[Rfam]
This 46-nucleotide RNA sequence from Drosophila yakuba belongs to the Rfam family "Small nucleolar RNA R442". On this family, see Huang et al., RNA 2005: "Genome-wide analyses of two families of snoRNA genes from Drosophila melanogaster, demonstrating the extensive utilization of introns for coding of snoRNAs". Pairs were carried over by alignment from the consensus structure, which was predicted with WAR.
RNA sequence: UGCAAGCCUGUUGGGUGUGAUUCAGCUUGUCAUAGUUACUCUGAUC
Numbered sequence: 001u002g003c004a005a006g007c008c009u010g011u012u013g014g015g016u017g018u019g020a021u022u023c024a025g026c027u028u029g030u031c032a033u034a035g036u037u038a039c040u041c042u043g044a045u046c
Base pairs, nucleotide, nucleotide: 006016007015008014017033018032019031020030021029